RNA sequence: GUCUCUAAUGAUGAUAAAAAAAACAUUCGUUCUUCUGACAAUUUACAACCAUGUGGAAGUUUUUUAUGGAGACCUGAACUGAAGGGAC
Numbered sequence: 001g002u003c004u005c006u007a008a009u010g011a012u013g014a015u016a017a018a019a020a021a022a023a024c025a026u027u028c029g030u031u032c033u034u035c036u037g038a039c040a041a042u043u044u045a046c047a048a049c050c051a052u053g054u055g056g057a058a059g060u061u062u063u064u065u066a067u068g069g070a071g072a073c074c075u076g077a078a079c080u081g082a083a084g085g086g087a088c
Stems, first nucleotide, its partner, number of pairs: 003086004
Dot-bracket structure: ..((((............................................................................))))..